[Rfam]
RNA sequence: UCGCCUUAUGUCGUGUAUCCUUGAUUGAUGCAGCCUCAGAUGCUUCA
Dot-bracket structure: .........((((........))))......(((.......)))...

A member of the RNA family "Plastid-ycf3 group II-D1 intron" from Aegilops tauschii, 47 nucleotides long. It scores 57 bits against the family's covariance model. Taxonomically the source falls in Aegilops tauschii (Eukaryota, Euphyllophyta, Spermatophyta, Petrosaviidae). Pairs were carried over by alignment from the consensus structure, which was predicted with LocARNA.